Record summary: The record is a 71-nucleotide RNA sequence from Oreotrochilus melanogaster, which matches "Small nucleolar RNA SNORD63" in Rfam. snoRNA U63 is found in both humans and mice. The family's consensus secondary structure was predicted with PFOLD. Taxonomically the source falls in Oreotrochilus (Eukaryota, Chordata, Saurischia, Aves).
RNA sequence: GUGCCAUGAUGUUAGUAGCAACACUUCAUUCUGAAGAACAGUUGUGUGUAGACCUUUUGUAACUGAGCACC
Numbered sequence: 001g002u003g004c005c006a007u008g009a010u011g012u013u014a015g016u017a018g019c020a021a022c023a024c025u026u027c028a029u030u031c032u033g034a035a036g037a038a039c040a041g042u043u044g045u046g047u048g049u050a051g052a053c054c055u056u057u058u059g060u061a062a063c064u065g066a067g068c069a070c071c
Stems, first nucleotide, its partner, number of pairs: 001070004